[Rfam]
Notes:
c-di-AMP riboswitch aptamer (ydaO/yuaA leader): a 199-nucleotide RNA from Paenibacillus sp. 32O-W. A search with the family's covariance model found it, with a score of 89 bits.
RNA sequence: AUAUUGUUUUCGCUUAAUCUUCCGGCAGGAAGAGCGGGGGAACCAACAGCGGGACGAUCGGCAUCGAUUGUCAUCGCGUACCAAACUAUUUUGGGGUGAAUUGAACGGCCCGAAGUCCGCGGAUGAAGGCGCCGUUGAUAGGGCGACUCUCUUGCCCGAACCCGACAGCUAACCUCGCAAGCGUUCCAAGAGAGAUCAA
Dot-bracket structure: ..........((((...((((((....))))))((((((....((..............................................))(((.....(.((((((.....................)))))).)..((((.........))))...))).........)))))).))))................
The source organism's lineage runs through Bacteria, Bacillati, Bacillota, Caryophanales and Paenibacillus.